[Rfam]
RNA: Ribosomal protein L10 leader
RNA sequence: AUAUAAAGUGUUAAACUACCGUAGACAGCAAGUGGCGAACGCCUUAAUUUCUUGCCGAGGAAGUUCCGAAUUUAUGGAUCUCUCUCUCUGUGUCUAAGGUGACAUAGAGAUUUUUUUUUUGAAAA
Numbered sequence: 001a002u003a004u005a006a007a008g009u010g011u012u013a014a015a016c017u018a019c020c021g022u023a024g025a026c027a028g029c030a031a032g033u034g035g036c037g038a039a040c041g042c043c044u045u046a047a048u049u050u051c052u053u054g055c056c057g058a059g060g061a062a063g064u065u066c067c068g069a070a071u072u073u074a075u076g077g078a079u080c081u082c083u084c085u086c087u088c089u090g091u092g093u094c095u096a097a098g099g100u101g102a103c104a105u106a107g108a109g110a111u112u113u114u115u116u117u118u119u120u121g122a123a124a125a
Base pairs, nucleotide, nucleotide: 028055029054030053031052032051034043035042036041085110086109087108088107089106090105091104092103093102094101